[Rfam]
RNA sequence: GGUCCGCAUUGGAGUUGUGUCCUGGACUCUUCAUGUCCCUGUUUGCACACUCACGGGGCCCGAGA
Numbered sequence: 001g002g003u004c005c006g007c008a009u010u011g012g013a014g015u016u017g018u019g020u021c022c023u024g025g026a027c028u029c030u031u032c033a034u035g036u037c038c039c040u041g042u043u044u045g046c047a048c049a050c051u052c053a054c055g056g057g058g059c060c061c062g063a064g065a
Stems, first nucleotide, its partner, number of pairs: 001061002004058002007055001017048004024038004

This 65-nucleotide RNA from Trypanosoma vivax belongs to the Rfam family "Trypanosomatid snoRNA TB9Cs2H1". The family's RNA type in Rfam is H/ACA-box small nucleolar RNA. Pairs were carried over by alignment from the consensus structure, which was predicted with WAR. Gene Ontology terms of the family: nucleolus and RNA processing. The family has 4 seed sequences and 57 matches in Rfam 15.1. It scores 70 bits against the family's covariance model. For this family Rfam cites "A genome-wide analysis of C/D and H/ACA-like small nucleolar RNAs in Trypanosoma brucei reveals a trypanosome-specific pattern of rRNA modification" (Liang et al., RNA, 2005). Taxonomically the source falls in Trypanosoma vivax (Eukaryota, Discoba, Trypanosomatidae, Duttonella).